This 72-nucleotide RNA sequence from Paraburkholderia caffeinitolerans belongs to the Rfam family "Fluoride riboswitch aptamer (crcB RNA motif)".

[Rfam]
RNA sequence: GCCCGAAAAGGAGAUGGCAUUCCUCCUUAACCAAACCGCCGGCUUUGCCCGGCUAAUGAUGCCUACGGUCCC
Numbered sequence: 001g002c003c004c005g006a007a008a009a010g011g012a013g014a015u016g017g018c019a020u021u022c023c024u025c026c027u028u029a030a031c032c033a034a035a036c037c038g039c040c041g042g043c044u045u046u047g048c049c050c051g052g053c054u055a056a057u058g059a060u061g062c063c064u065a066c067g068g069u070c071c072c
Stems, first nucleotide, its partner, number of pairs: 010026004016063006038053004